Rfam assigns this 105-nucleotide RNA from Ricinus communis to the family "Small nucleolar RNA Z279/snoR105/snoR108".
Gene Ontology terms of the family: nucleolus and RNA processing.
The family's consensus secondary structure was predicted with PFOLD.
On this family, see Marker et al., Curr Biol 2002: "Experimental RNomics: identification of 140 candidates for small non-messenger RNAs in the plant Arabidopsis thaliana".
Rfam's curators put it in the seed alignment.
The family is grouped with related families in Rfam's "snoU13 clan".
[Rfam]
RNA sequence: GGGAUAUGAUGAGUGGUCAAUGCUCGCUAAUUGCUAUGCGAGAUGGGUGUCCGCCCCUUGCCAGUUACGACAAUAUGGGCACUCUCAUCUGUACCAUCUGAUCCC
Dot-bracket structure: ((((.........((((.....(((((..........)))))..(((((((............((.......))..)).)))))........)))).....))))
Lineage of the source: Eukaryota > Viridiplantae > Malpighiales > Euphorbiaceae > Ricinus. It is annotated as a C/D-box small nucleolar RNA. Rfam describes the family as follows. This family includes the plant snoRNAs known as Z279, snoR105 and snoR108.